[Rfam]
RNA sequence: UGGCCUGAAAUGAUGUUCUGAGUUCAUGUCUCUUCACUGAGAUAUGUCGUGGAGACAGUAAGAUGCAUUUCUGAUCAGGCUU
Numbered sequence: 001u002g003g004c005c006u007g008a009a010a011u012g013a014u015g016u017u018c019u020g021a022g023u024u025c026a027u028g029u030c031u032c033u034u035c036a037c038u039g040a041g042a043u044a045u046g047u048c049g050u051g052g053a054g055a056c057a058g059u060a061a062g063a064u065g066c067a068u069u070u071c072u073g074a075u076c077a078g079g080c081u082u
Base pairs, nucleotide, nucleotide: 002081003080004079005078
Shown here is an 82-nucleotide sequence from Aleadryas rufinucha, a member of the family "Small nucleolar RNA SNORD111". A search with the family's covariance model found it, with a score of 47 bits. Gene Ontology terms of the family: RNA processing and nucleolus. By type it is a C/D-box small nucleolar RNA. Lineage of the source: Eukaryota > Craniata > Telluraves > Passeriformes > Aleadryas. The family's consensus secondary structure was predicted with RNAalifold.